[Rfam]
RNA: mir-160 microRNA precursor family
RNA sequence: UAGUGCCUGGCUCCCUGUAUGCCACACGUUGACCAGUCAAUCAUACAGAUUGGCUAGCUCGAGUGGCAUUCAGAGAGCCAAGCACUC
Numbered sequence: 001u002a003g004u005g006c007c008u009g010g011c012u013c014c015c016u017g018u019a020u021g022c023c024a025c026a027c028g029u030u031g032a033c034c035a036g037u038c039a040a041u042c043a044u045a046c047a048g049a050u051u052g053g054c055u056a057g058c059u060c061g062a063g064u065g066g067c068a069u070u071c072a073g074a075g076a077g078c079c080a081a082g083c084a085c086u087c
Stems, first nucleotide, its partner, number of pairs: 002086005008080006016072002019069006027061002